[Rfam]
RNA sequence: GUCGAGUCACCGCCAAAUCGGUGUUCGGGCGCAAGCUCGUUCGCCGAACCGAGGACCCAGAUGUAGUGGGGUGAAUCCUCGCCCGGCUAUACGAGGUCGGUCGAGGUAGGACCGAUCUUCCCGGCCCGAACCCGUCAGCUAACUCGGUAGGCGGGUGGAGUGGAAGA
Numbered sequence: 001g002u003c004g005a006g007u008c009a010c011c012g013c014c015a016a017a018u019c020g021g022u023g024u025u026c027g028g029g030c031g032c033a034a035g036c037u038c039g040u041u042c043g044c045c046g047a048a049c050c051g052a053g054g055a056c057c058c059a060g061a062u063g064u065a066g067u068g069g070g071g072u073g074a075a076u077c078c079u080c081g082c083c084c085g086g087c088u089a090u091a092c093g094a095g096g097u098c099g100g101u102c103g104a105g106g107u108a109g110g111a112c113c114g115a116u117c118u119u120c121c122c123g124g125c126c127c128g129a130a131c132c133c134g135u136c137a138g139c140u141a142a143c144u145c146g147g148u149a150g151g152c153g154g155g156u157g158g159a160g161u162g163g164a165a166g167a
Base pairs, nucleotide, nucleotide: 011153012152013151014150018047019046020045021044022043023042048148049147050146051145052144053143058068059067069133070132071131077106078105079104080103109127110126112124